[Rfam]
RNA sequence: CGCCUGAAGCGGGGGUACCGGGCCAUGGCCCGGUUGAGACAGACCCUUCGAACCUGAUCCGGUUGACACCGGCGUAGGGAAGCUUCGCGACCGGGCCU
Numbered sequence: 001c002g003c004c005u006g007a008a009g010c011g012g013g014g015g016u017a018c019c020g021g022g023c024c025a026u027g028g029c030c031c032g033g034u035u036g037a038g039a040c041a042g043a044c045c046c047u048u049c050g051a052a053c054c055u056g057a058u059c060c061g062g063u064u065g066a067c068a069c070c071g072g073c074g075u076a077g078g079g080a081a082g083c084u085u086c087g088c089g090a091c092c093g094g095g096c097c098u
Stems, first nucleotide, its partner, number of pairs: 006086005011047004016041001017034005053078004059072004